[Rfam]
RNA sequence: GCCGAGCCUGGUAGCGAUGGCUUGUUACCCAAGCGGGGGCAUUGAGGUGGUGGAAUGAAUGUGAGAGCCAAGCGGGUGGGGUGUGGACGUGUAAAUCUCGGCUUGCCCGUUCCAAGUCUUGCAGCUGAACCAUGCGGUCUGGGCGAAGGCUCGGGUCGCAUUGGAUCUUAAAGCGGAGGGCACAGCGUCAGGCUGGCUUCACAGAGCAGCGAAUACCUCCCGCUCUCGACGGUGGAAGGAUAACAAGUCGGCGCACGCCUCACCCAUAUACCCACUUGGCUAAUACUGAUCAAACCAUCACUUUU
Numbered sequence: 001g002c003c004g005a006g007c008c009u010g011g012u013a014g015c016g017a018u019g020g021c022u023u024g025u026u027a028c029c030c031a032a033g034c035g036g037g038g039g040c041a042u043u044g045a046g047g048u049g050g051u052g053g054a055a056u057g058a059a060u061g062u063g064a065g066a067g068c069c070a071a072g073c074g075g076g077u078g079g080g081g082u083g084u085g086g087a088c089g090u091g092u093a094a095a096u097c098u099c100g101g102c103u104u105g106c107c108c109g110u111u112c113c114a115a116g117u118c119u120u121g122c123a124g125c126u127g128a129a130c131c132a133u134g135c136g137g138u139c140u141g142g143g144c145g146a147a148g149g150c151u152c153g154g155g156u157c158g159c160a161u162u163g164g165a166u167c168u169u170a171a172a173g174c175g176g177a178g179g180g181c182a183c184a185g186c187g188u189c190a191g192g193c194u195g196g197c198u199u200c201a202c203a204g205a206g207c208a209g210c211g212a213a214u215a216c217c218u219c220c221c222g223c224u225c226u227c228g229a230c231g232g233u234g235g236a237a238g239g240a241u242a243a244c245a246a247g248u249c250g251g252c253g254c255a256c257g258c259c260u261c262a263c264c265c266a267u268a269u270a271c272c273c274a275c276u277u278g279g280c281u282a283a284u285a286c287u288g289a290u291c292a293a294a295c296c297a298u299c300a301c302u303u304u305u
Stems, first nucleotide, its partner, number of pairs: 001040003004023005028037003044304010056292002061284002064281002068279005074273004079265005085259002088257004098251008107239002110237005116230003121226001123224003127167002130164003133160012168173001175220005186211003193204003